[Rfam]
RNA sequence: UUAGCUUUUUUAGAUAGGUUUGUAUUCAUCAAGAUGGAUGCAAACGACCUACGUUUUGUAUCUAUCUAUGAUGGCUAAAGAGUUUUGACGUACCACCAGCCACGUAGAAGUAAUCGAAGUGGCUGAAGAAUUCUAUUCUCGUAUUCCCAUCAUCCACUUAGUUUACUGAGUGGAUGAUUUUUUUAUGGAA
Number, nucleotide and partner (000 for none) at each position: 001u078002u077003a076004g075005c074006u073007u000008u000009u000010u000011u068012a067013g066014a065015u064016a063017g000018g045019u044020u043021u042022g041023u040024a039025u038026u037027c036028a035029u034030c000031a000032a000033g000034a029035u028036g027037g026038a025039u024040g023041c022042a021043a020044a019045c018046g000047a000048c000049c000050u060051a059052c058053g000054u000055u000056u000057u000058g052059u051060a050061u000062c000063u016064a015065u014066c013067u012068a011069u000070g000071a000072u000073g006074g005075c004076u003077a002078a001079a000080g000081a000082g145083u000084u143085u000086u141087g140088a139089c000090g137091u000092a000093c000094c000095a000096c000097c000098a124099g123100c122101c121102a120103c119104g000105u117106a000107g115108a000109a000110g000111u000112a000113a000114u000115c107116g000117a105118a000119g103120u102121g101122g100123c099124u098125g000126a000127a000128g000129a000130a000131u000132u000133c000134u000135a000136u000137u090138c000139u088140c087141g086142u000143a084144u000145u082146c170147c000148c168149a167150u000151c000152a164153u000154c000155c000156a000157c000158u000159u000160a000161g000162u000163u000164u152165a000166c000167u149168g148169a000170g146171u000172g000173g000174a000175u000176g000177a000178u000179u000180u000181u000182u000183u000184u000185a000186u000187g000188g000189a000190a000
Annotation:
Shown here is a 190-nucleotide RNA from Enterococcus pallens, a member of the family "Enterococcus sRNA 2410". The organism belongs to Enterococcus pallens, within Bacteria. Pairs were carried over by alignment from the consensus structure, which was predicted with RNAfold. Rfam's curators write: Produced as 2 transcripts on Northern blot. Expressed in mid, late exponential and early stationary phases of growth. Expression remained uniform under daptomycin exposure.